[Rfam]
RNA: L31-Firmicutes ribosomal protein leader
RNA sequence: CUAUGGGGCGGCGGAUUUCCCAUGGCGGAAAGGAG
Numbered sequence: 001c002u003a004u005g006g007g008g009c010g011g012c013g014g015a016u017u018u019c020c021c022a023u024g025g026c027g028g029a030a031a032g033g034a035g
Base pairs, nucleotide, nucleotide: 001025002024003023004022005021006020007019008018
Dot-bracket structure: ((((((((.........))))))))..........